[Rfam]
RNA sequence: UUGAACUGUGAUGAGUCUACAGACCUGUAAUGAAUUGCGGCCAUGAUCGCAAACAUUUUGAACAUCUAAGGGACUGAGUUCAU
Numbered sequence: 001u002u003g004a005a006c007u008g009u010g011a012u013g014a015g016u017c018u019a020c021a022g023a024c025c026u027g028u029a030a031u032g033a034a035u036u037g038c039g040g041c042c043a044u045g046a047u048c049g050c051a052a053a054c055a056u057u058u059u060g061a062a063c064a065u066c067u068a069a070g071g072g073a074c075u076g077a078g079u080u081c082a083u
Base pairs, nucleotide, nucleotide: 002082003081004080005079006078

Small nucleolar RNA SNORD25: an 83-nucleotide RNA sequence from Lupinus angustifolius. It is annotated as a C/D-box small nucleolar RNA. Rfam links the family to the GO terms RNA processing and nucleolus. It scores 62 bits against the family's covariance model.